ASpks TB sRNA: a 75-nucleotide RNA from Actinobacteria bacterium OK074. NCBI's taxonomy places the organism under Bacteria, Bacillati, Actinomycetota, Actinomycetes. The family's consensus secondary structure is taken from published work.
RNA sequence: CUUCACCGAGCCCAGCAGCAACGGCCGUUCCUCCGGCCGGUCUUGGCCGUAGGUCGCGAGCAGCGCCUGGGCCUC
Numbered sequence: 001c002u003u004c005a006c007c008g009a010g011c012c013c014a015g016c017a018g019c020a021a022c023g024g025c026c027g028u029u030c031c032u033c034c035g036g037c038c039g040g041u042c043u044u045g046g047c048c049g050u051a052g053g054u055c056g057c058g059a060g061c062a063g064c065g066c067c068u069g070g071g072c073c074u075c
Base pairs, nucleotide, nucleotide: 015025016024031071032070033069038065039064043060044059047056049054
It scores 80 bits against the family's covariance model.